The record is a 108-nucleotide sequence from Exobacillus caeni, which matches "ylbH leader" in Rfam. The organism belongs to Exobacillus, within Bacteria. Rfam's curators write: This family is a putative regulatory RNA structure that is found upstream of the ylbH gene in B. subtilis and related low GC Gram-positive bacteria.

[Rfam]
RNA sequence: GCAAAAAAAUGCCCGCAGGAAUCAUCCUGCGGGUGCCUUUAUGAAAAGGCAAAUGGGAGAGGAGAAACCGGAGAAGAACUUAUGGGGAAACGUAAGCCUUCUCCGCGG
Numbered sequence: 001g002c003a004a005a006a007a008a009a010u011g012c013c014c015g016c017a018g019g020a021a022u023c024a025u026c027c028u029g030c031g032g033g034u035g036c037c038u039u040u041a042u043g044a045a046a047a048g049g050c051a052a053a054u055g056g057g058a059g060a061g062g063a064g065a066a067a068c069c070g071g072a073g074a075a076g077a078a079c080u081u082a083u084g085g086g087g088a089a090a091c092g093u094a095a096g097c098c099u100u101c102u103c104c105g106c107g108g
Base pairs, nucleotide, nucleotide: 011034012033013032014031015030016029017028018027019026036056037055038047039046069105070104071103072102073101074100075099076098079096080095081094082093
The pairing is the family consensus, mapped onto this sequence.